[Rfam]
RNA sequence: UCAAAGGCUCUUUUCAGAGCCACCCACGUUUCCUAAAAAGUGCUG
Dot-bracket structure: .....((((((....))))))........................
Histone 3' UTR stem-loop: a 45-nucleotide RNA from Chrysochloris asiatica.
By type it is a cis-regulatory element.
It scores 43 bits against the family's covariance model.
Rfam describes the family as follows. The mRNAs of metazoan histone genes lack a poly-A tail. 3' end processing occurs at a site between a highly conserved stem-loop (modelled by this family) and a purine rich region around 20 nts downstream (the histone downstream element, or HDE). The stem-loop is bound by a 31 kDa stem-loop binding protein (SLBP - also termed the histone hairpin binding protein, or HBP).